[Rfam]
A member of the RNA family "Small nucleolar RNA R72" from Gossypium mustelinum, 95 nucleotides long.
A reference for the family is Chen et al. (2003), "The high diversity of snoRNAs in plants: identification and comparative study of 120 snoRNA genes from Oryza sativa", Nucleic Acids Res.
snoR72 is a C/D box small nucleolar RNA, which acts as a methylation guide for 25S ribosomal RNA in Arabidopsis.
By type it is a C/D-box small nucleolar RNA.
RNA sequence: AUGCAAAUGAUGAGAAUCAUUUUGGGUAUGAGAAGCUCGCCGAUACUUUAAAGCGAGCGAUGUUUGAACCUCAUACUUCCAUGACUCUGAUGCGU
Dot-bracket structure: (((((.............................((((((............))))))................................)))))

Lineage of the source: Eukaryota > Euphyllophyta > Gunneridae > Malvoideae > Gossypium.